A member of the RNA family "U1 spliceosomal RNA" from Gossypium australe, 160 nucleotides long. The family is grouped with related families in Rfam's "U1 clan". The match comes from Rfam's covariance-model search (135 bits). The base pairs follow the family's consensus structure, which is taken from published work. The organism belongs to Gossypium, within Eukaryota. The family's RNA type in Rfam is spliceosomal small nuclear RNA.
RNA sequence: AUACUUACCUGGACGGGGUCGAUGGAUGAUCAUCAAGAUCCAUGGCCUAGGGUAGUGACCUCCAUUGCACCCAGGAGGGGUGCUUCCCUAAGGUCUACCCAAGCGGGAGAGCCUACGUCAUAAUUUGUGGCAGAGGGGACCUGCGUUCGCGCGAUCCGUA
Number, nucleotide and partner (000 for none) at each position: 001a000002u000003a000004c000005u000006u000007a000008c000009c000010u000011g000012g119013a118014c117015g116016g048017g047018g046019u045020c044021g043022a000023u042024g041025g040026a039027u038028g000029a000030u000031c000032a000033u000034c000035a000036a000037g000038a027039u026040c025041c024042a023043u021044g020045g019046c018047c017048u016049a089050g088051g087052g086053u000054a000055g083056u082057g081058a000059c079060c078061u077062c075063c074064a000065u000066u000067g000068c000069a000070c000071c000072c000073a000074g063075g062076a000077g061078g060079g059080g000081u057082g056083c055084u000085u000086c052087c051088c050089u049090a000091a114092g113093g112094u110095c109096u108097a000098c106099c105100c000101a000102a000103g000104c000105g099106g098107g000108a096109g095110a094111g000112c093113c092114u091115a000116c015117g014118u013119c012120a000121u000122a000123a000124u000125u000126u000127g000128u000129g000130g000131c000132a000133g000134a000135g159136g000137g157138g156139a155140c000141c000142u153143g152144c151145g150146u000147u000148c000149g000150c145151g144152c143153g142154a000155u139156c138157c137158g000159u135160a000